[Rfam]
RNA sequence: GGAAGAAUGUCCGAAUUGGCUAAGGAACCGGUCUUGAAAACCGGCGAAACCGCAAGGUGUCUGGGUUCGAGUCCCAGUUCUUCCG
Dot-bracket structure: (((((((..(((...........))).(((((.......)))))................(((((.......)))))))))))).
The record is an 85-nucleotide sequence from Sebaldella termitidis, which matches "tRNA" in Rfam.